[Rfam]
RNA sequence: GCGCUCUCAAAGUGGUUGUGAAAUGCAUUUGAAAGCUUUGCGCGCAUAUCACAGCCAGCUUUGAUGAGCUUAG
Numbered sequence: 001g002c003g004c005u006c007u008c009a010a011a012g013u014g015g016u017u018g019u020g021a022a023a024u025g026c027a028u029u030u031g032a033a034a035g036c037u038u039u040g041c042g043c044g045c046a047u048a049u050c051a052c053a054g055c056c057a058g059c060u061u062u063g064a065u066g067a068g069c070u071u072a073g
Base pairs, nucleotide, nucleotide: 005067006066007064008063009062010061011060012059013057014056015055016054017053018052019051020050021049024048025047
RNA: mir-2 microRNA precursor family
Organism: Drosophila virilis